[Rfam]
RNA sequence: UCGAUGAAACUGAACCUUUUCGAUGGGAUGCCAUUGAAAACGAACCGGCUAAUCUUCUGUAAUGCUAUUAUGAGGAUUGCCCUUUGAGGCUGAUAGCAAUAGGUCGCCCUAUGGUCGGUUACAUGCUUUUGUUGA
Numbered sequence: 001u002c003g004a005u006g007a008a009a010c011u012g013a014a015c016c017u018u019u020u021c022g023a024u025g026g027g028a029u030g031c032c033a034u035u036g037a038a039a040a041c042g043a044a045c046c047g048g049c050u051a052a053u054c055u056u057c058u059g060u061a062a063u064g065c066u067a068u069u070a071u072g073a074g075g076a077u078u079g080c081c082c083u084u085u086g087a088g089g090c091u092g093a094u095a096g097c098a099a100u101a102g103g104u105c106g107c108c109c110u111a112u113g114g115u116c117g118g119u120u121a122c123a124u125g126c127u128u129u130u131g132u133u134g135a
Stems, first nucleotide, its partner, number of pairs: 001135009017040010043120007051078007064097005099112005

Staphylococcus-1 RNA: a 135-nucleotide sequence. It is annotated as a small RNA. It is one of the family's seed sequences.